[Rfam]
RNA: mir-147 microRNA precursor family
Organism: Monodelphis domestica
RNA sequence: UGAGAAUCUAGCGGAAACAUCUCUGCACAAACUAGACUACUGAUACCAGUGUUCAGAAGUGCUUCUGCUACAUUUUUA
Numbered sequence: 001u002g003a004g005a006a007u008c009u010a011g012c013g014g015a016a017a018c019a020u021c022u023c024u025g026c027a028c029a030a031a032c033u034a035g036a037c038u039a040c041u042g043a044u045a046c047c048a049g050u051g052u053u054c055a056g057a058a059g060u061g062c063u064u065c066u067g068c069u070a071c072a073u074u075u076u077u078a
Stems, first nucleotide, its partner, number of pairs: 001078002004075004009070008018061003022057004027052003032049002